Rfam assigns this 302-nucleotide RNA from Exophiala xenobiotica to the family "Group I catalytic intron".
Rfam's curators write: Group I catalytic introns are large self-splicing ribozymes. They catalyse their own excision from mRNA, tRNA and rRNA precursors in a wide range of organisms. The core secondary structure consists of 9 paired regions (P1-P9). These fold to essentially two domains - the P4-P6 domain (formed from the stacking of P5, P4, P6 and P6a helices) and the P3-P9 domain (formed from the P8, P3, P7 and P9 helices). The secondary structure mark-up for this family represents only this conserved core. Group I catalytic introns often have long ORFs inserted in loop regions. The window size for this search is chosen to minimise search time and catch the small examples. A larger window size will find more matches.
Rfam links the family to the GO term Group I intron splicing.
The match comes from Rfam's covariance-model search (108 bits).
Taxonomically the source falls in Exophiala (Eukaryota, Pezizomycotina, Chaetothyriales, Herpotrichiellaceae).

RNA sequence: CUACUUAGGUGGUUAAGUGUGGCCCUGAAAGGGGUGCGCAAGUGCCAGGUUCUGGCGCGACACUGUCAAAUUGCGGGGACUCCCUAAAGCUUCGACGACCGCCUCCCUUACGAAAGUAGGGUGUUUAGGCACCAGGUUAACGACCUCGGGUAUGGUAAAACUGUCGAAGAUGCAACAAUGGGUAAUCUGCAGCCAAGUCCUAAGCUCCUUUACCAGGGGUAUGGAUGCAGUUCACAGACUAAAUGGCAGUGGGCUCUGUUUAGGGGCUUAAGAUAUAGUCGGUCCCCCGGGGAGACCCGGGC
Numbered sequence: 001c002u003a004c005u006u007a008g009g010u011g012g013u014u015a016a017g018u019g020u021g022g023c024c025c026u027g028a029a030a031g032g033g034g035u036g037c038g039c040a041a042g043u044g045c046c047a048g049g050u051u052c053u054g055g056c057g058c059g060a061c062a063c064u065g066u067c068a069a070a071u072u073g074c075g076g077g078g079a080c081u082c083c084c085u086a087a088a089g090c091u092u093c094g095a096c097g098a099c100c101g102c103c104u105c106c107c108u109u110a111c112g113a114a115a116g117u118a119g120g121g122u123g124u125u126u127a128g129g130c131a132c133c134a135g136g137u138u139a140a141c142g143a144c145c146u147c148g149g150g151u152a153u154g155g156u157a158a159a160a161c162u163g164u165c166g167a168a169g170a171u172g173c174a175a176c177a178a179u180g181g182g183u184a185a186u187c188u189g190c191a192g193c194c195a196a197g198u199c200c201u202a203a204g205c206u207c208c209u210u211u212a213c214c215a216g217g218g219g220u221a222u223g224g225a226u227g228c229a230g231u232u233c234a235c236a237g238a239c240u241a242a243a244u245g246g247c248a249g250u251g252g253g254c255u256c257u258g259u260u261u262a263g264g265g266g267c268u269u270a271a272g273a274u275a276u277a278g279u280c281g282g283u284c285c286c287c288c289g290g291g292g293a294g295a296c297c298c299g300g301g302c
Stems, first nucleotide, its partner, number of pairs: 061251005067245002072191006082182003192231002197226004205219005235281001237280005253267005287300005